[Rfam]
RNA: Bacterial RNase P class A
Organism: Carboxydothermus hydrogenoformans
RNA sequence: CGAGUAAGCCGGAUGACCGCGGGGAGAAAUCCCUGAGGAAAGUCCGAGCUCCAUAGGGCAGGAUGCCGGGUAACGCCCGGUGGAGGCGACUCCAAGGAAAGUGCCACAGAAACAAACCGCCUUAUUGGAAGUUGGAGGUGAGAGGUUAGAAGUUGGAAAGGAGAAAUUAAAUGAUUUACUCCUUUAAAGAUUUAGAAGUUUACCAAACUUCUUAUAAUCUUGCUCUUGAAAUAUAUAAAAUCAUAACAACUUUUCCCAAAUAUGAGCAGUACGAGCUUGCAAGUCAAUUUCGCAGAGCCGUAAUUUCAAUUCCUUUAAAUAUUGCGGAAGGCUUUGGUCGUAAACGUUCAAUUUUAACUUUUAAAAGUUUUAUUUUAAAUAGCCUUGGCUCUUGUAAUGAAGUGUUAGUAUUACUGGACUUUGCUAAGGAUUUAAAUUAUUUAGAUGAAAACACUUACCAAUAUUUUUAUAAGGAGUAUGAAUUACUUGCUAAAAAAAUAAAUCGCUUAUAUGCCAAUUGGAAAUAAGGUUUUUUCUAAUUUCUAACUUCCAACCUCCAACUUCCAGUAGGGUAAGGGUGGAAAGGUGAGGUAAGAGCUCACCAGCGGGCAGGUAACUGUCCGGCUAGGCAAACCCCAUCCGGAGCAAGACCAAAUAGGGGGACUAUAGAGUGGCCCGCUCUGUCCCCGGGUUGGUCGCUUAAGGCCUCUGGUGACAGAGGUCUCAGAUAGAUGGUCAUCCUCGACAGAACUCGGCUUACAGGCUUACUCGCUUG
Numbered sequence: 001c002g003a004g005u006a007a008g009c010c011g012g013a014u015g016a017c018c019g020c021g022g023g024g025a026g027a028a029a030u031c032c033c034u035g036a037g038g039a040a041a042g043u044c045c046g047a048g049c050u051c052c053a054u055a056g057g058g059c060a061g062g063a064u065g066c067c068g069g070g071u072a073a074c075g076c077c078c079g080g081u082g083g084a085g086g087c088g089a090c091u092c093c094a095a096g097g098a099a100a101g102u103g104c105c106a107c108a109g110a111a112a113c114a115a116a117c118c119g120c121c122u123u124a125u126u127g128g129a130a131g132u133u134g135g136a137g138g139u140g141a142g143a144g145g146u147u148a149g150a151a152g153u154u155g156g157a158a159a160g161g162a163g164a165a166a167u168u169a170a171a172u173g174a175u176u177u178a179c180u181c182c183u184u185u186a187a188a189g190a191u192u193u194a195g196a197a198g199u200u201u202a203c204c205a206a207a208c209u210u211c212u213u214a215u216a217a218u219c220u221u222g223c224u225c226u227u228g229a230a231a232u233a234u235a236u237a238a239a240a241u242c243a244u245a246a247c248a249a250c251u252u253u254u255c256c257c258a259a260a261u262a263u264g265a266g267c268a269g270u271a272c273g274a275g276c277u278u279g280c281a282a283g284u285c286a287a288u289u290u291c292g293c294a295g296a297g298c299c300g301u302a303a304u305u306u307c308a309a310u311u312c313c314u315u316u317a318a319a320u321a322u323u324g325c326g327g328a329a330g331g332c333u334u335u336g337g338u339c340g341u342a343a344a345c346g347u348u349c350a351a352u353u354u355u356a357a358c359u360u361u362u363a364a365a366a367g368u369u370u371u372a373u374u375u376u377a378a379a380u381a382g383c384c385u386u387g388g389c390u391c392u393u394g395u396a397a398u399g400a401a402g403u404g405u406u407a408g409u410a411u412u413a414c415u416g417g418a419c420u421u422u423g424c425u426a427a428g429g430a431u432u433u434a435a436a437u438u439a440u441u442u443a444g445a446u447g448a449a450a451a452c453a454c455u456u457a458c459c460a461a462u463a464u465u466u467u468u469a470u471a472a473g474g475a476g477u478a479u480g481a482a483u484u485a486c487u488u489g490c491u492a493a494a495a496a497a498a499u500a501a502a503u504c505g506c507u508u509a510u511a512u513g514c515c516a517a518u519u520g521g522a523a524a525u526a527a528g529g530u531u532u533u534u535u536c537u538a539a540u541u542u543c544u545a546a547c548u549u550c551c552a553a554c555c556u557c558c559a560a561c562u563u564c565c566a567g568u569a570g571g572g573u574a575a576g577g578g579u580g581g582a583a584a585g586g587u588g589a590g591g592u593a594a595g596a597g598c599u600c601a602c603c604a605g606c607g608g609g610c611a612g613g614u615a616a617c618u619g620u621c622c623g624g625c626u627a628g629g630c631a632a633a634c635c636c637c638a639u640c641c642g643g644a645g646c647a648a649g650a651c652c653a654a655a656u657a658g659g660g661g662g663a664c665u666a667u668a669g670a671g672u673g674g675c676c677c678g679c680u681c682u683g684u685c686c687c688c689g690g691g692u693u694g695g696u697c698g699c700u701u702a703a704g705g706c707c708u709c710u711g712g713u714g715a716c717a718g719a720g721g722u723c724u725c726a727g728a729u730a731g732a733u734g735g736u737c738a739u740c741c742u743c744g745a746c747a748g749a750a751c752u753c754g755g756c757u758u759a760c761a762g763g764c765u766u767a768c769u770c771g772c773u774u775g
Stems, first nucleotide, its partner, number of pairs: 001771010011760001012740007020035006040758003044755005049645004056677004061641005066080005081095001082093004096636002101634002103630003117577002119573021585603006605625001606623007649697004659688006668682005704723008